[Rfam]
RNA sequence: AAGCAGUGUGACAUGCCCGUUUGGUAUUAGACUCUGAUGUAUUAUUCUUAUUUAAUUGCUUUGGAAUAACGGGGUGUUACACUUAU
Numbered sequence: 001a002a003g004c005a006g007u008g009u010g011a012c013a014u015g016c017c018c019g020u021u022u023g024g025u026a027u028u029a030g031a032c033u034c035u036g037a038u039g040u041a042u043u044a045u046u047c048u049u050a051u052u053u054a055a056u057u058g059c060u061u062u063g064g065a066a067u068a069a070c071g072g073g074g075u076g077u078u079a080c081a082c083u084u085a086u
Stems, first nucleotide, its partner, number of pairs: 002086001005083010016073006
This 86-nucleotide sequence from Medicago truncatula belongs to the Rfam family "MIR2617 microRNA precursor family".
It scores 67 bits against the family's covariance model.
Gene Ontology terms of the family: miRNA-mediated post-transcriptional gene silencing and RISC complex.